[Rfam]
RNA: mir-315 microRNA precursor family
RNA sequence: CUCUUCAUGCUUUUGAUUGUUGCUCAGAAAGCCUUUAAUUGAUAUUGGCUUUCGGGCAAUAAUCAUAAUCACAGGAGAG
Numbered sequence: 001c002u003c004u005u006c007a008u009g010c011u012u013u014u015g016a017u018u019g020u021u022g023c024u025c026a027g028a029a030a031g032c033c034u035u036u037a038a039u040u041g042a043u044a045u046u047g048g049c050u051u052u053c054g055g056g057c058a059a060u061a062a063u064c065a066u067a068a069u070c071a072c073a074g075g076a077g078a079g
Stems, first nucleotide, its partner, number of pairs: 001079006011068002014065004019060007027053007